RNA: S15-Flavobacteria ribosomal protein leader
RNA sequence: UACAUUUGCAACUUUGAUAGAAAAGCUAUCAAUACAUAAAAAUCAUUGAAAUAAUAUUGGCAUG
Numbered sequence: 001u002a003c004a005u006u007u008g009c010a011a012c013u014u015u016g017a018u019a020g021a022a023a024a025g026c027u028a029u030c031a032a033u034a035c036a037u038a039a040a041a042a043u044c045a046u047u048g049a050a051a052u053a054a055u056a057u058u059g060g061c062a063u064g
Base pairs, nucleotide, nucleotide: 014032015031016030017029018028019027